Description
Rfam assigns this 32-nucleotide RNA sequence from Aneurinibacillus tyrosinisolvens to the family "L31-Firmicutes ribosomal protein leader". Clan: Ribosomal Protein L31 Leader clan. By type it is a cis-regulatory leader. Lineage of the source: Bacteria > Bacillati > Caryophanales > Paenibacillaceae > Aneurinibacillus. The family's consensus secondary structure is taken from published work.

Nucleotides: 032
Base pairs, nucleotide, nucleotide: 001023002022003021004020005019008016009015
Number, partner (000 for none) and nucleotide at each position: 001023c002022u003021c004020u005019g006000u007000u008016u009015c010000g011000u012000a013000a014000a015009g016008a017000u018000u019005c020004a021003g022002g023001g024000c025000a026000g027000a028000a029000a030000g031000a032000g